[Rfam]
This 147-nucleotide RNA sequence from Jacana jacana belongs to the Rfam family "U11 spliceosomal RNA". The organism belongs to Jacana, within Eukaryota. Rfam classes the family as a spliceosomal small nuclear RNA. The family is grouped with related families in Rfam's "U1 clan".
RNA sequence: AAAAAGGGCUUCUGCCAUGUGUGGCACGGGGAGGGCCGCACGCCCGCCCCCGCGGAAUCGACAUCAAGAGAUUUCGGAAGCACAAUUUUUUGCGGUGAGGGGAGGCCGGUAACCGCUAUAUAAUUUUCUUUUUAAUCAGCUGCCCAG
Numbered sequence: 001a002a003a004a005a006g007g008g009c010u011u012c013u014g015c016c017a018u019g020u021g022u023g024g025c026a027c028g029g030g031g032a033g034g035g036c037c038g039c040a041c042g043c044c045c046g047c048c049c050c051c052g053c054g055g056a057a058u059c060g061a062c063a064u065c066a067a068g069a070g071a072u073u074u075c076g077g078a079a080g081c082a083c084a085a086u087u088u089u090u091u092g093c094g095g096u097g098a099g100g101g102g103a104g105g106c107c108g109g110u111a112a113c114c115g116c117u118a119u120a121u122a123a124u125u126u127u128c129u130u131u132u133u134a135a136u137c138a139g140c141u142g143c144c145c146a147g
Stems, first nucleotide, its partner, number of pairs: 008081005013026005027052005034045002053076007099145003104141003108137003112133001